[Rfam]
RNA: Purine riboswitch aptamer
Organism: Paenibacillus sp. D9
RNA sequence: CGCAUAUGAUUUCAAGCAACUCGUAUAUCUUCGGGAAUCGGCCCGAAAGUUUCUACCUGGCGACCUUAAUCGCCGGACUACGGGAUGCCGGAAGCAGGCU
Numbered sequence: 001c002g003c004a005u006a007u008g009a010u011u012u013c014a015a016g017c018a019a020c021u022c023g024u025a026u027a028u029c030u031u032c033g034g035g036a037a038u039c040g041g042c043c044c045g046a047a048a049g050u051u052u053c054u055a056c057c058u059g060g061c062g063a064c065c066u067u068a069a070u071c072g073c074c075g076g077a078c079u080a081c082g083g084g085a086u087g088c089c090g091g092a093a094g095c096a097g098g099c100u
Stems, first nucleotide, its partner, number of pairs: 018086001020084006030047006057076007